[Rfam]
RNA sequence: GAGAUAUGAUGAGUUUCUUUAUUGGUCCGUGUUUCUGAUUUAACCGUGACCGACAAACCUAUUCCAAACUCUGAUCUC
Numbered sequence: 001g002a003g004a005u006a007u008g009a010u011g012a013g014u015u016u017c018u019u020u021a022u023u024g025g026u027c028c029g030u031g032u033u034u035c036u037g038a039u040u041u042a043a044c045c046g047u048g049a050c051c052g053a054c055a056a057a058c059c060u061a062u063u064c065c066a067a068a069c070u071c072u073g074a075u076c077u078c
Stems, first nucleotide, its partner, number of pairs: 001078004
Small nucleolar RNA SNORD18: a 78-nucleotide sequence from Rhododendron williamsianum. Gene Ontology terms of the family: RNA processing and nucleolus. The literature on the family includes a 1993 paper in Nucleic Acids Res by Prislei et al., "Two different snoRNAs are encoded in introns of amphibian and human L1 ribosomal protein genes". The organism belongs to Rhododendron, within Eukaryota. The family is grouped with related families in Rfam's "SNORD18 clan". Rfam classes the family as a C/D-box small nucleolar RNA.